Rfam assigns this 142-nucleotide RNA from Methylobacterium planeticum to the family "Alphaproteobacterial sRNA BjrC1505".
A reference for the family is Madhugiri et al. (2012), "Small RNAs of the Bradyrhizobium/Rhodopseudomonas lineage and their analysis", RNA Biol.
[Rfam]
RNA sequence: UCCCUUAACCGCCGGUUAACCUUUCUGGCGCAUGAAGGGAGCAGUCCAGAUGUCUGGAUGUCGAGUGGUACCUCCGUCCACUCUGUUUGAUGCCUCCCUGUAGACUCAUCCAAAGCCGCCCGCCCUGGGCGGCUUUUUUUCG
Dot-bracket structure: ((........)(....(...((....))...).)..)......((((........))))...((((((.........))))))......(((......)))..........((((((((((.....))))))))))......

By type it is a small RNA. Taxonomically the source falls in Methylobacterium (Bacteria, Pseudomonadati, Pseudomonadota, Methylobacteriaceae). The pairing is the family consensus, mapped onto this sequence.